[Rfam]
RNA: permuted transfer-messenger RNA
Organism: Sphingomonas sinipercae
RNA sequence: GCCGGUAGAGUGUUAGGUGGAAUAGGCAUUUCGGACCCGGGGGGCAGUACCCCGGCGCCUCCACCACCAGCCGCGGUUCGCGCCGCUGCUGAUGGGGGCGAAAUAGGAUCGACGAGUGCAAUAAAGGUCUGGCUGCCGGUCGGUAUGAGUCCACCGCAAAGGCUCAUUCACACAAGUGCCAACGAUAACGAGGCUCUUGCUAUUGCUGCGUAA
Numbered sequence: 001g002c003c004g005g006u007a008g009a010g011u012g013u014u015a016g017g018u019g020g021a022a023u024a025g026g027c028a029u030u031u032c033g034g035a036c037c038c039g040g041g042g043g044g045c046a047g048u049a050c051c052c053c054g055g056c057g058c059c060u061c062c063a064c065c066a067c068c069a070g071c072c073g074c075g076g077u078u079c080g081c082g083c084c085g086c087u088g089c090u091g092a093u094g095g096g097g098g099c100g101a102a103a104u105a106g107g108a109u110c111g112a113c114g115a116g117u118g119c120a121a122u123a124a125a126g127g128u129c130u131g132g133c134u135g136c137c138g139g140u141c142g143g144u145a146u147g148a149g150u151c152c153a154c155c156g157c158a159a160a161g162g163c164u165c166a167u168u169c170a171c172a173c174a175a176g177u178g179c180c181a182a183c184g185a186u187a188a189c190g191a192g193g194c195u196c197u198u199g200c201u202a203u204u205g206c207u208g209c210g211u212a213a
Base pairs, nucleotide, nucleotide: 001140002139003138004137005136015130016129017128018127027118028117029116031115032114033113037055038054039053040052041051056100057099058098059097060096061095062094141156142155143154144153